[Rfam]
Shown here is a 108-nucleotide RNA from Sinorhizobium sp. BG8, a member of the family "EcpR1". Rfam's curators write: Perviously named SmelC291, SmrC10, or Sra33. The base pairs follow the family's consensus structure, which was predicted with WAR. Lineage of the source: Bacteria > Alphaproteobacteria > Hyphomicrobiales > Rhizobiaceae > Sinorhizobium.
RNA sequence: UUACCCCAUGAUGCUAGGUCCGCCGCAUCUCCUGGGUCGUGGGGUCGGUCGACUGGAUGCGACUUUAACGGAAUCCUCGUGCCGUUGUCGCCUCCGGUCGACCCCGUU
Dot-bracket structure: ..((((((((...(((((............))).)).)))))))).(((((((((((...................................))))))))))).....